[Rfam]
RNA sequence: GGUUUCUAUUGGUGCAAAUUCAAUCACUUAGAUUUGAGAUGAAAAGUAAUUCUCCAUUGGUAGCAAAUAGUUAUCUAUUAAACGGAGAAAAUAGCAU
Numbered sequence: 001g002g003u004u005u006c007u008a009u010u011g012g013u014g015c016a017a018a019u020u021c022a023a024u025c026a027c028u029u030a031g032a033u034u035u036g037a038g039a040u041g042a043a044a045a046g047u048a049a050u051u052c053u054c055c056a057u058u059g060g061u062a063g064c065a066a067a068u069a070g071u072u073a074u075c076u077a078u079u080a081a082a083c084g085g086a087g088a089a090a091a092u093a094g095c096a097u
Stems, first nucleotide, its partner, number of pairs: 009023004052087004056078002059075006
A member of the RNA family "Plastid-rps12 3UTR RNA" from Musa balbisiana, 97 nucleotides long. Rfam describes the family as follows. Plastid rpl20 is a non-coding RNA (ncRNA) recognised in plastids. The organism belongs to Musa, within Eukaryota.